[Rfam]
RNA sequence: ACCAGUGAUGGGAAUGGGGUUCUCCCGAAACCGCCAGUGAUGGCUGAUGACUCCUGCCGCGAA
Numbered sequence: 001a002c003c004a005g006u007g008a009u010g011g012g013a014a015u016g017g018g019g020u021u022c023u024c025c026c027g028a029a030a031c032c033g034c035c036a037g038u039g040a041u042g043g044c045u046g047a048u049g050a051c052u053c054c055u056g057c058c059g060c061g062a063a
Stems, first nucleotide, its partner, number of pairs: 010026004016054006033044004
The record is a 63-nucleotide sequence from Mesorhizobium sp. Root172, which matches "Fluoride riboswitch aptamer (crcB RNA motif)" in Rfam. Rfam links the family to the GO terms response to fluoride and positive regulation of gene expression.